[Rfam]
The record is a 76-nucleotide RNA sequence from Orthoflavivirus japonicum, which matches "Flavivirus DB element" in Rfam. Rfam describes the family as follows. This family represents the flavivirus 3' UTR elements DB1 and DB2. These DB elements are thought to be required for efficient translation. The source organism's lineage runs through Viruses, Orthornavirae, Amarillovirales, Orthoflavivirus and Orthoflavivirus japonicum. On this family, see Akiyama et al., Nucleic Acids Res 2021: "Three-dimensional structure of a flavivirus dumbbell RNA reveals molecular details of an RNA regulator of replication".

RNA sequence: CCACGGCCCAAGUCUCGUCCAGGAUGCAAUGGACGAGAUGUAAGGACUAGAGGUUAGAGGAGACCCCGUGGAAACA
Numbered sequence: 001c002c003a004c005g006g007c008c009c010a011a012g013u014c015u016c017g018u019c020c021a022g023g024a025u026g027c028a029a030u031g032g033a034c035g036a037g038a039u040g041u042a043a044g045g046a047c048u049a050g051a052g053g054u055u056a057g058a059g060g061a062g063a064c065c066c067c068g069u070g071g072a073a074a075c076a
Base pairs, nucleotide, nucleotide: 002070003069004068005067006066007045008044012039013038014037015036016035017034018033019032052065053064054063055062